Record summary
The family of this 117-nucleotide RNA sequence from Acanthosepion pharaonis is "mir-2513 microRNA precursor family". The family has 2 seed sequences and 40 matches in Rfam 15.1. It scores 90 bits against the family's covariance model. Gene Ontology terms of the family: RISC complex and miRNA-mediated post-transcriptional gene silencing. Lineage of the source: Eukaryota > Metazoa > Sepiida > Sepiidae > Acanthosepion.

RNA sequence: UCAACGUCGGACGUUUCGGUCUAAUAAACCAUCUUCAGGACAUAUUCAUAAUGUUAAUUAUAUUUUUUAUGAAUAUGUCCUGAAGAUGGUUUAUUAGACCGAAACGUCCGACGUUGA
Numbered sequence: 001u002c003a004a005c006g007u008c009g010g011a012c013g014u015u016u017c018g019g020u021c022u023a024a025u026a027a028a029c030c031a032u033c034u035u036c037a038g039g040a041c042a043u044a045u046u047c048a049u050a051a052u053g054u055u056a057a058u059u060a061u062a063u064u065u066u067u068u069a070u071g072a073a074u075a076u077g078u079c080c081u082g083a084a085g086a087u088g089g090u091u092u093a094u095u096a097g098a099c100c101g102a103a104a105c106g107u108c109c110g111a112c113g114u115u116g117a
Stems, first nucleotide, its partner, number of pairs: 001117028030088002033085015